Acido-Lenti-1 RNA: a 46-nucleotide RNA from Desulfonema limicola.
It scores 50 bits against the family's covariance model.
By type it is a small RNA.
[Rfam]
RNA sequence: CCAGGCAGUAAACUGCCUGGCUAUUUUCUGUCGUCCCUACGGGACU
Dot-bracket structure: ((((((((....))))))))............(((((...))))).
Numbered sequence: 001c002c003a004g005g006c007a008g009u010a011a012a013c014u015g016c017c018u019g020g021c022u023a024u025u026u027u028c029u030g031u032c033g034u035c036c037c038u039a040c041g042g043g044a045c046u
Stems, first nucleotide, its partner, number of pairs: 001020008033045005